Shown here is a 485-nucleotide sequence from Pantoea ananatis, a member of the family "cspA thermoregulator". On this family, see Giuliodori et al., Mol Cell 2010: "The cspA mRNA is a thermosensor that modulates translation of the cold-shock protein CspA". Rfam links the family to the GO terms regulation of translation and response to temperature stimulus.

RNA sequence: AUCGGUUUGGAACACAGACCUUAUGAAAGCAGUUUUAGUAAAGCAGUCCUCAGUUCAAGCGUCAUUCCCAGAUGCCCUUCUUCAUGAGCCUCCUCCUAAGUGCCCAAUAAGUAAAAUCUGCAAAACAGGCCAUCUUCGUCACCUUGCGUGGCUCAAAAUGAAAAGGACACAUCUAUGUCAACUAAAAUGACUGGUUUAGUAAAAUGGUUUAACGCUGAUAAAGGCUUCGGCUUUAUUUCUCCUCAGGACGGCAGCAAAGAUGUAUUCGUACAUUUCUCUGCUAUUCAGAGCAGCGAUUUCAAAACAUUAGAUGAAGGCCAGAAAGUGGAGUUCUCAAUCGAGAACGGCCCUAAAGGUCCUUCAGCUGGCAAUGUUGUUGCUCUGUAACAGCUGAUGCCCUCACGACCGCUUACGAUAGCGAUGAUGGCAACAGCCUGAGCAGUUAAGUCGUUGUGAAAAGAACCCGCCUUGUGCGGGUUUUUUUA
Numbered sequence: 001a002u003c004g005g006u007u008u009g010g011a012a013c014a015c016a017g018a019c020c021u022u023a024u025g026a027a028a029g030c031a032g033u034u035u036u037a038g039u040a041a042a043g044c045a046g047u048c049c050u051c052a053g054u055u056c057a058a059g060c061g062u063c064a065u066u067c068c069c070a071g072a073u074g075c076c077c078u079u080c081u082u083c084a085u086g087a088g089c090c091u092c093c094u095c096c097u098a099a100g101u102g103c104c105c106a107a108u109a110a111g112u113a114a115a116a117u118c119u120g121c122a123a124a125a126c127a128g129g130c131c132a133u134c135u136u137c138g139u140c141a142c143c144u145u146g147c148g149u150g151g152c153u154c155a156a157a158a159u160g161a162a163a164a165g166g167a168c169a170c171a172u173c174u175a176u177g178u179c180a181a182c183u184a185a186a187a188u189g190a191c192u193g194g195u196u197u198a199g200u201a202a203a204a205u206g207g208u209u210u211a212a213c214g215c216u217g218a219u220a221a222a223g224g225c226u227u228c229g230g231c232u233u234u235a236u237u238u239c240u241c242c243u244c245a246g247g248a249c250g251g252c253a254g255c256a257a258a259g260a261u262g263u264a265u266u267c268g269u270a271c272a273u274u275u276c277u278c279u280g281c282u283a284u285u286c287a288g289a290g291c292a293g294c295g296a297u298u299u300c301a302a303a304a305c306a307u308u309a310g311a312u313g314a315a316g317g318c319c320a321g322a323a324a325g326u327g328g329a330g331u332u333c334u335c336a337a338u339c340g341a342g343a344a345c346g347g348c349c350c351u352a353a354a355g356g357u358c359c360u361u362c363a364g365c366u367g368g369c370a371a372u373g374u375u376g377u378u379g380c381u382c383u384g385u386a387a388c389a390g391c392u393g394a395u396g397c398c399c400u401c402a403c404g405a406c407c408g409c410u411u412a413c414g415a416u417a418g419c420g421a422u423g424a425u426g427g428c429a430a431c432a433g434c435c436u437g438a439g440c441a442g443u444u445a446a447g448u449c450g451u452u453g454u455g456a457a458a459a460g461a462a463c464c465c466g467c468c469u470u471g472u473g474c475g476g477g478u479u480u481u482u483u484u485a
Base pairs, nucleotide, nucleotide: 004020005019006018007017008016009015028243029242031240032239042234043233045232046231047230048229049224050223054222055221061219062218063217064216067214071210072209074208075207076206080177082175086173091167092166093165094164099117101115129152130151131150132149133148179194181192183190247339248338251335259267260266271327272326273325274324275323277322278321279320280319281317282316284311285310287308288307346359347358350356351355362384363383364382366379367378368377369376389452390451391450457483458482459481460480461479462478463477464476465475466474467473
Dot-bracket structure: ...((((((.....)))))).......((.((.........((.((((((...((.....((((..(...((.(((...(.(...(....((((....(.(.............).)...........(((((..............)))))...........)))).....).).).(.(.(......).).)...........)))))...).)))).))))....))))))....)).))...((..(.......((.....))...(((((.((((((.((.((..................)).))....)).))))))))).......)..))......((..((...)).))..(((.((((......))))..)))....(((..........................................................)))....(((((((((((.....)))))))))))..